The record is a 315-nucleotide part of an RNA from Erpetoichthys calabaricus, which matches "Eukaryotic large subunit ribosomal RNA" in Rfam.
RNA sequence: GAGUCUAACACGCACGCGAGUCAGAGGGUCUUUUCGAAACCCCGUGGCAAUGAAAGUGAGGGCCGGCGCGCGCCGGCUGAGGUGGGAUCCCGGGCCCCCCGCGGCCCGGGCGCACCGCCGGCCCGUCUCGCCCGCCCCGCCGGGGAGGUGGAGCCAGAGCGUACGUGAUAGGACCCGAAAGAUGGUGAACUAUGCCUGGGCAGGGCGAAGCCAGAGGAAACUCUGGUGGAGGUCCGCAGCGGUCCUGACGUGCAAAUCGGUCGUCCGACCUGGGUAUAGGGGCGAAAGACUAAUCGAACCAUCUAGUAGCUGGUU
Numbered sequence: 001g002a003g004u005c006u007a008a009c010a011c012g013c014a015c016g017c018g019a020g021u022c023a024g025a026g027g028g029u030c031u032u033u034u035c036g037a038a039a040c041c042c043c044g045u046g047g048c049a050a051u052g053a054a055a056g057u058g059a060g061g062g063c064c065g066g067c068g069c070g071c072g073c074c075g076g077c078u079g080a081g082g083u084g085g086g087a088u089c090c091c092g093g094g095c096c097c098c099c100c101g102c103g104g105c106c107c108g109g110g111c112g113c114a115c116c117g118c119c120g121g122c123c124c125g126u127c128u129c130g131c132c133c134g135c136c137c138c139g140c141c142g143g144g145g146a147g148g149u150g151g152a153g154c155c156a157g158a159g160c161g162u163a164c165g166u167g168a169u170a171g172g173a174c175c176c177g178a179a180a181g182a183u184g185g186u187g188a189a190c191u192a193u194g195c196c197u198g199g200g201c202a203g204g205g206c207g208a209a210g211c212c213a214g215a216g217g218a219a220a221c222u223c224u225g226g227u228g229g230a231g232g233u234c235c236g237c238a239g240c241g242g243u244c245c246u247g248a249c250g251u252g253c254a255a256a257u258c259g260g261u262c263g264u265c266c267g268a269c270c271u272g273g274g275u276a277u278a279g280g281g282g283c284g285a286a287a288g289a290c291u292a293a294u295c296g297a298a299c300c301a302u303c304u305a306g307u308a309g310c311u312g313g314u315u
Base pairs, nucleotide, nucleotide: 005171006170007169009167010166011165012164014162015161016160017159020048021047022046026042027041028040029039050057051056081119082118083117084116085115089110090109091108092107093106094105095104121154122153123151124150125149126148127147128146132142174313175312177310181303182302183301184300185299186298190279191278192277193276194275195274196273197272198271199270200269201267203235204234205233206232210227211226212225213224214223215222216221239264240263241262242261244260245259247258248257281291282290

About this RNA:
The source organism's lineage runs through Eukaryota, Bilateria, Actinopterygii, Polypteridae and Erpetoichthys.